[Rfam]
Overview: This 70-nucleotide RNA sequence belongs to the Rfam family "L31-Actinobacteria ribosomal protein leader". A reference for the family is Eckert and Weinberg (2020), "Discovery of 20 novel ribosomal leader candidates in bacteria and archaea", BMC Microbiol. The sequence is in the family's curated seed alignment. The base pairs follow the family's consensus structure, which is taken from published work.
RNA sequence: AAGGUUCCGGUUCACGCCCGAGCCCACCGCCCUGGCGGGGCGGCGCGGCGCUGACAGCGACCCGGCGACC
Number, nucleotide and partner (000 for none) at each position: 001a000002a000003g070004g069005u068006u000007c065008c064009g063010g062011u000012u000013c000014a000015c059016g058017c057018c000019c053020g052021a000022g000023c000024c000025c000026a000027c000028c000029g000030c000031c000032c000033u000034g000035g000036c000037g000038g000039g000040g000041c000042g000043g000044c000045g000046c000047g000048g000049c000050g000051c000052u020053g019054a000055c000056a000057g017058c016059g015060a000061c000062c010063c009064g008065g007066c000067g000068a005069c004070c003